[Rfam]
RNA: LOOT RNA
RNA sequence: UGCCUAAACCUUUUGCGAGGCAUGGCAUUAAAAGUCCGAUCAAGGUAUUAAGCUCGUCGUCAGAGCACCUUGAUCGGUCAUGUCUCGAAAGAGAUGUGGGUAGUCUUCGGACUAUC
Numbered sequence: 001u002g003c004c005u006a007a008a009c010c011u012u013u014u015g016c017g018a019g020g021c022a023u024g025g026c027a028u029u030a031a032a033a034g035u036c037c038g039a040u041c042a043a044g045g046u047a048u049u050a051a052g053c054u055c056g057u058c059g060u061c062a063g064a065g066c067a068c069c070u071u072g073a074u075c076g077g078u079c080a081u082g083u084c085u086c087g088a089a090a091g092a093g094a095u096g097u098g099g100g101u102a103g104u105c106u107u108c109g110g111a112c113u114a115u116c
Stems, first nucleotide, its partner, number of pairs: 001027004009020004036077011052066004079098008099116006